[Rfam]
RNA sequence: GGGGAGUGGUCAGAGCAGGGGGCCUGAAGAAUGGCUUUUCUGUUUAAAACGCUCCCAAGAGGAACCUGAGGUCAUUGUGAAGAGGGCACAAAAUGAGUGGCCCUACUGUCAACAAGUGCCUUACACGU
Numbered sequence: 001g002g003g004g005a006g007u008g009g010u011c012a013g014a015g016c017a018g019g020g021g022g023c024c025u026g027a028a029g030a031a032u033g034g035c036u037u038u039u040c041u042g043u044u045u046a047a048a049a050c051g052c053u054c055c056c057a058a059g060a061g062g063a064a065c066c067u068g069a070g071g072u073c074a075u076u077g078u079g080a081a082g083a084g085g086g087c088a089c090a091a092a093a094u095g096a097g098u099g100g101c102c103c104u105a106c107u108g109u110c111a112a113c114a115a116g117u118g119c120c121u122u123a124c125a126c127g128u
Base pairs, nucleotide, nucleotide: 002056003055004054005053006052007051008050013045014044015043016042017041018040019039020038021037022035023034024033069121070120071119072118076114077113078112082109084103085102086101087099088098089097
The family of this 128-nucleotide sequence from Heterocephalus glaber is "Small nucleolar RNA SNORA11". About the family: U107 (SNORA11) is a member of the H/ACA class of snoRNAs that guide the sites of modification of uridines to pseudouridines. This snoRNA was identified by RT-PCR from blood cells and its expression confirmed by Northern blot analysis. There is no predicted target for this guide snRNA. The match comes from Rfam's covariance-model search (116 bits). Its family is annotated with RNA processing and nucleolus in the Gene Ontology. For this family Rfam cites "A novel experimental approach for systematic identification of box H/ACA snoRNAs from eukaryotes" (Gu et al., Nucleic Acids Res, 2005). By type it is an H/ACA-box small nucleolar RNA.